[Rfam]
Notes: Rfam assigns this 532-nucleotide part of an RNA from Thermocladium modestius to the family "Archaeal small subunit ribosomal RNA". Rfam 15.1 lists 709 matches to the family in 491 species. It scores 1471 bits against the family's covariance model.
RNA sequence: AAACCGGUUGAUCCUGCCGGACCCGACCGCUAUCGGGGUGAGGCUUAGCCAUGCGAGUCGGAUGUCUUGGGGAUCCGCCAGGGCAUGGCGGACGGCUCAGUAACACGUGGCCAACCUACCCUAGGGAGGGGAAUAACCCCGGGAAACUGGGGCUAAUUCCCCAUAGGAGAGGGAAGCUGGAAGGCUCCCUCCCCGAAAGGAACCGCGUCCGGCACCCGGCGCGAUUCGCCCUAGGAUGGGGCUGCGGUCCAUCAUGGUUGUUGGUGGGGUAAUGGCCCACCAAGCCGAAGACGGAUGGGGGCCGUGAGAGCGGGAGCCCCGAGAUGGGCACUGAGACAAGGGCCCAGGCCCUAUGGGGUGCAGCAGGCGCGAAACCUCCGCAAUGCAGGAAACUGCGACGGGGUUACCCCGAGUGCUACCCGAUGAGGGUAGCUUUUCCCCGGUGUAGAAAGCCGGGGGAAUAAGCGGGGGGCAAGUCUGGUGUCAGCCGCCGCGGUAAUACCAGCUCCGCGAGUGGUCGGGGUGAUUACUG
Numbered sequence: 001a002a003a004c005c006g007g008u009u010g011a012u013c014c015u016g017c018c019g020g021a022c023c024c025g026a027c028c029g030c031u032a033u034c035g036g037g038g039u040g041a042g043g044c045u046u047a048g049c050c051a052u053g054c055g056a057g058u059c060g061g062a063u064g065u066c067u068u069g070g071g072g073a074u075c076c077g078c079c080a081g082g083g084c085a086u087g088g089c090g091g092a093c094g095g096c097u098c099a100g101u102a103a104c105a106c107g108u109g110g111c112c113a114a115c116c117u118a119c120c121c122u123a124g125g126g127a128g129g130g131g132a133a134u135a136a137c138c139c140c141g142g143g144a145a146a147c148u149g150g151g152g153c154u155a156a157u158u159c160c161c162c163a164u165a166g167g168a169g170a171g172g173g174a175a176g177c178u179g180g181a182a183g184g185c186u187c188c189c190u191c192c193c194c195g196a197a198a199g200g201a202a203c204c205g206c207g208u209c210c211g212g213c214a215c216c217c218g219g220c221g222c223g224a225u226u227c228g229c230c231c232u233a234g235g236a237u238g239g240g241g242c243u244g245c246g247g248u249c250c251a252u253c254a255u256g257g258u259u260g261u262u263g264g265u266g267g268g269g270u271a272a273u274g275g276c277c278c279a280c281c282a283a284g285c286c287g288a289a290g291a292c293g294g295a296u297g298g299g300g301g302c303c304g305u306g307a308g309a310g311c312g313g314g315a316g317c318c319c320c321g322a323g324a325u326g327g328g329c330a331c332u333g334a335g336a337c338a339a340g341g342g343c344c345c346a347g348g349c350c351c352u353a354u355g356g357g358g359u360g361c362a363g364c365a366g367g368c369g370c371g372a373a374a375c376c377u378c379c380g381c382a383a384u385g386c387a388g389g390a391a392a393c394u395g396c397g398a399c400g401g402g403g404u405u406a407c408c409c410c411g412a413g414u415g416c417u418a419c420c421c422g423a424u425g426a427g428g429g430u431a432g433c434u435u436u437u438c439c440c441c442g443g444u445g446u447a448g449a450a451a452g453c454c455g456g457g458g459g460a461a462u463a464a465g466c467g468g469g470g471g472g473c474a475a476g477u478c479u480g481g482u483g484u485c486a487g488c489c490g491c492c493g494c495g496g497u498a499a500u501a502c503c504a505g506c507u508c509c510g511c512g513a514g515u516g517g518u519c520g521g522g523g524u525g526a527u528u529a530c531u532g
Stems, first nucleotide, its partner, number of pairs: 004020005022522010033412009042370001048368003052365003057089003062086009096323003106246007115239002120235007128162004137152006167193001169191006176185002200227002248295003256286003261283008298320004302313004325346005348359004376402001378401003384397005415433007438458007465511006478505004487494002
The family is grouped with related families in Rfam's "SSU clan". Gene Ontology terms of the family: structural constituent of ribosome and ribosome. The organism belongs to Thermocladium, within Archaea.